[Rfam]
RNA sequence: UCCAGGGAGACCUGGAAUCUAAAGGAAGCCGGAGGCAAAUUUCCGCCGCGAGGAACACGAACCUCAUAAUAGGCUGUCUGCCUGGGGUGAGUCUGCGAAACAAGACGAAGCCCCAACGACCAAAGGGGCAGGCAGUAAAUGAGGCGGGGAUAUGGAAAGGAAGUUUAUGCU
Number, nucleotide and partner (000 for none) at each position: 001u016002c015003c014004a013005g012006g011007g000008a000009g000010a000011c006012c005013u004014g003015g002016a001017a000018u000019c000020u000021a000022a000023a000024g000025g000026a000027a000028g171029c000030c169031g168032g000033a000034g000035g164036c163037a000038a000039a000040u158041u157042u156043c155044c154045g153046c149047c148048g000049c146050g145051a000052g000053g000054a000055a000056c000057a000058c000059g000060a000061a000062c144063c143064u142065c141066a140067u139068a000069a000070u000071a000072g000073g136074c135075u134076g000077u132078c131079u130080g129081c128082c127083u126084g000085g113086g112087g111088u110089g000090a000091g106092u105093c104094u103095g000096c000097g000098a000099a000100a000101c000102a000103a094104g093105a092106c091107g000108a000109a000110g088111c087112c086113c085114c000115a000116a000117c000118g000119a000120c000121c000122a000123a000124a000125g000126g083127g082128g081129c080130a079131g078132g077133c000134a075135g074136u073137a000138a000139a067140u066141g065142a064143g063144g062145c050146g049147g000148g047149g046150a000151u000152a000153u045154g044155g043156a042157a041158a040159g000160g000161a000162a000163g036164u035165u000166u000167a000168u031169g030170c000171u028
This 171-nucleotide sequence from Salimicrobium jeotgali belongs to the Rfam family "Group II catalytic intron D1-D4-3". A search with the family's covariance model found it, with a score of 139 bits. Rfam's curators write: Group II introns are found in rRNA, tRNA and mRNA of organelles in fungi, plants and protists, and also in mRNA in bacteria. The base pairs follow the family's consensus structure.